[Rfam]
A member of the RNA family "Small nucleolar RNA SNORD17" from Hippolais icterina, 250 nucleotides long. Pairs were carried over by alignment from the consensus structure, which was predicted with RNAalifold. Rfam links the family to the GO terms RNA processing and nucleolus. Rfam 15.1 lists 1,015 matches to the family in 568 species. From the family's description: The snoRNA HBI-43 belongs to the C/D family of snoRNAs, guiding 2'O-ribose methylation at position U3797 of the 28S rRNA. Pseudouridylation in position U3797 is predicted to be guided by the H/ACA snoRNA ACA48. A search with the family's covariance model found it, with a score of 104 bits.

RNA sequence: GUGAGGUGAUGACACAGUUUAUCCAUUCUCUGAGUGCACUGGAGCUGCCCUCCUGCAGCAGCCCAGCUCCUGUUCUAGGCUCUGGGUGCUGGGCAGCCUCCAGACAUCCUGCAGUGUCCCAGUGUGCUGCUGGGGGCUGCUGUGCUGUGUGGCUGGCUGCCUGCCUGCAGGAGGGGAGCAGUGCUGGCAGGCUUGGAGCCCCUCUUUGGGGGCUCCAUCCUCACUGGGACGAGGGAUGAUGUCUGAUCAC
Numbered sequence: 001g002u003g004a005g006g007u008g009a010u011g012a013c014a015c016a017g018u019u020u021a022u023c024c025a026u027u028c029u030c031u032g033a034g035u036g037c038a039c040u041g042g043a044g045c046u047g048c049c050c051u052c053c054u055g056c057a058g059c060a061g062c063c064c065a066g067c068u069c070c071u072g073u074u075c076u077a078g079g080c081u082c083u084g085g086g087u088g089c090u091g092g093g094c095a096g097c098c099u100c101c102a103g104a105c106a107u108c109c110u111g112c113a114g115u116g117u118c119c120c121a122g123u124g125u126g127c128u129g130c131u132g133g134g135g136g137c138u139g140c141u142g143u144g145c146u147g148u149g150u151g152g153c154u155g156g157c158u159g160c161c162u163g164c165c166u167g168c169a170g171g172a173g174g175g176g177a178g179c180a181g182u183g184c185u186g187g188c189a190g191g192c193u194u195g196g197a198g199c200c201c202c203u204c205u206u207u208g209g210g211g212g213c214u215c216c217a218u219c220c221u222c223a224c225u226g227g228g229a230c231g232a233g234g235g236a237u238g239a240u241g242u243c244u245g246a247u248c249a250c
Base pairs, nucleotide, nucleotide: 010249011248012247017242018241020239023235024234026233027232028231030228031227034224035223039187040186041185044182045181046180047179048178049175050174051172052171053170054169055168056167057166063086064085066082069079070078071077093160094159095158096157097156098155106146111140112139113138114137115136117135118134119133120132121131122130123129124128190222191221194217195216196215197214198213199212201210202209
Description
The organism belongs to Hippolais, within Eukaryota.